[Rfam]
RNA sequence: GGACCAGAAGACGACGUGAGUGGGCGAGUGGGCUUGGGGCUGAUUUUGUUGGUCCGGCCCAGGAAAGUCCCCGGGCUUUUAUCUGCAGAGAUGCAGGCCCGGAAACGGGUGAAAGUUGAUGUUGAAAUCUAAAUCUCUAUUGGGCUGAGACGAGGUGGAGCUUUAGAUUUGGACACAAUUAAAUUUGGCCGAUACACAGUUAUUCACGUGGUCCAUUAUUGGAUUAACUGAACGGGGCUUACAAUCUUCUGGUC
Dot-bracket structure: .((((((((((..((((((..((((...............................))))....[[[.[[[[...........((((....)))).(((((....)))))..((.....((((........(((.......((((......(...)...))))...)))..))))...)).......................)))))).(((((....))))).........]]]]]]]....))))))))))
RNA: RNase MRP